[Rfam]
RNA sequence: CCUAUUUUGGAAUCAUGAUGGUUUGGAAUAGGUCAGGACAGUGUUGCCAAUCAAGGAUUUUGCUAAGGCAACCCAUAAGGCAUCUUUUGCAUAAAGUAGAAGUCACAAACUUAGAACCGUUUUGAUUGUGAGAUUUGAAUUUUAUAGGGCAAAAAGUGGCGCGUUUGGAGCAAGGGCGGAUAUAUUUAUUAUAUCUGGUAACGCGCAGGGCGU
Dot-bracket structure: (((((((..................)))))))..........((((((...........[[[[[..)))))).........((.((((((..........................................................)))))).)).((((((....]]]]]...(((((((.......)))))))...)))))).......